Description
Shown here is a 281-nucleotide part of an RNA from Drechslerella stenobrocha, a member of the family "Eukaryotic large subunit ribosomal RNA". It scores 3294 bits against the family's covariance model. NCBI's taxonomy places the organism under Eukaryota, Pezizomycotina, Orbiliaceae, Drechslerella, Drechslerella stenobrocha.

[Rfam]
RNA sequence: GAGUCUAACAUCUAUGCGAGUCUUUGGGUGUCAAACCCAUGGGCGUAAUGAAAGUGAACGGAGGUGGGAGUCUUCGGAUGCACCAUCGACCGAUCCUGAUGUUCUCGGAUGGAUUUGAGUAGGAGCAUAGCUGUUGGGACCCGAAAGAUGGUGAACUAUGCCUGAAUAGGGUGAAGCCAGAGGAAACUCUGGUGGAGGCUCGCAGCGGUUCUGACGUGCAAAUCGAUCGUCAAAUUUGGGUAUAGGGGCGAAAGACUAAUCGAACCAUCUAGUAGCUGGUU
Numbered sequence: 001g002a003g004u005c006u007a008a009c010a011u012c013u014a015u016g017c018g019a020g021u022c023u024u025u026g027g028g029u030g031u032c033a034a035a036c037c038c039a040u041g042g043g044c045g046u047a048a049u050g051a052a053a054g055u056g057a058a059c060g061g062a063g064g065u066g067g068g069a070g071u072c073u074u075c076g077g078a079u080g081c082a083c084c085a086u087c088g089a090c091c092g093a094u095c096c097u098g099a100u101g102u103u104c105u106c107g108g109a110u111g112g113a114u115u116u117g118a119g120u121a122g123g124a125g126c127a128u129a130g131c132u133g134u135u136g137g138g139a140c141c142c143g144a145a146a147g148a149u150g151g152u153g154a155a156c157u158a159u160g161c162c163u164g165a166a167u168a169g170g171g172u173g174a175a176g177c178c179a180g181a182g183g184a185a186a187c188u189c190u191g192g193u194g195g196a197g198g199c200u201c202g203c204a205g206c207g208g209u210u211c212u213g214a215c216g217u218g219c220a221a222a223u224c225g226a227u228c229g230u231c232a233a234a235u236u237u238g239g240g241u242a243u244a245g246g247g248g249c250g251a252a253a254g255a256c257u258a259a260u261c262g263a264a265c266c267a268u269c270u271a272g273u274a275g276c277u278g279g280u281u
Stems, first nucleotide, its partner, number of pairs: 005137006012130006020044003025039005048055002063087005070079003089120002091117003094113003100107002140279002143276001147269006156245011167233001169201004176193007205230004210226002213224002247257002